[Rfam]
RNA: Selenocysteine insertion sequence 3
RNA sequence: GUCUGACACGGCCCAACGGUGGCAGGUCUUGCCCCAACAUUUGGCCGUGGCGCUAUGAC
Numbered sequence: 001g002u003c004u005g006a007c008a009c010g011g012c013c014c015a016a017c018g019g020u021g022g023c024a025g026g027u028c029u030u031g032c033c034c035c036a037a038c039a040u041u042u043g044g045c046c047g048u049g050g051c052g053c054u055a056u057g058a059c
Stems, first nucleotide, its partner, number of pairs: 007049007015042002018035002021033005